[Rfam]
RNA sequence: CCUAGUUUCUUUGUUGGAACUGAAUAAUUACGAAAAUAUGUACUGACAACAAAUUCUUCUUGCUUGAAGAUAGGAUUUCAAUGAUAGAAUGAAAUCC
Numbered sequence: 001c002c003u004a005g006u007u008u009c010u011u012u013g014u015u016g017g018a019a020c021u022g023a024a025u026a027a028u029u030a031c032g033a034a035a036a037u038a039u040g041u042a043c044u045g046a047c048a049a050c051a052a053a054u055u056c057u058u059c060u061u062g063c064u065u066g067a068a069g070a071u072a073g074g075a076u077u078u079c080a081a082u083g084a085u086a087g088a089a090u091g092a093a094a095u096c097c
Stems, first nucleotide, its partner, number of pairs: 039091003043087003051078006058070004

Background:
The family of this 97-nucleotide RNA from Araneus ventricosus is "Small nucleolar RNA snoR97". Pairs were carried over by alignment from the consensus structure, which was predicted with WAR. The source organism's lineage runs through Eukaryota, Panarthropoda, Entelegynae, Araneoidea and Araneus. A search with the family's covariance model found it, with a score of 41 bits.